[Rfam]
RNA: Iron response element I
RNA sequence: UAAUUUCUUGCUUCAAUUCAUUUUGAACGGAAAUGA
Numbered sequence: 001u002a003a004u005u006u007c008u009u010g011c012u013u014c015a016a017u018u019c020a021u022u023u024u025g026a027a028c029g030g031a032a033a034u035g036a
Stems, first nucleotide, its partner, number of pairs: 001036001003034006010028001012027005